Rfam assigns this 61-nucleotide RNA from Leptolyngbyaceae cyanobacterium M33_DOE_097 to the family "Nitrogen stress-induced RNA 1". Rfam 15.1 lists 962 matches to the family in 163 species.

RNA sequence: AAGUAGAUGCACCCUGAUGAUAUAGGGGGGAGAUACCAGUUGGUGUCUCCCCUUUUUUUUU
Numbered sequence: 001a002a003g004u005a006g007a008u009g010c011a012c013c014c015u016g017a018u019g020a021u022a023u024a025g026g027g028g029g030g031a032g033a034u035a036c037c038a039g040u041u042g043g044u045g046u047c048u049c050c051c052c053u054u055u056u057u058u059u060u061u
Base pairs, nucleotide, nucleotide: 003012004011026053027052028051029050030049031048032047033046034045035044036043
The match comes from Rfam's covariance-model search (42 bits).
It is annotated as a small RNA.
Pairs were carried over by alignment from the consensus structure.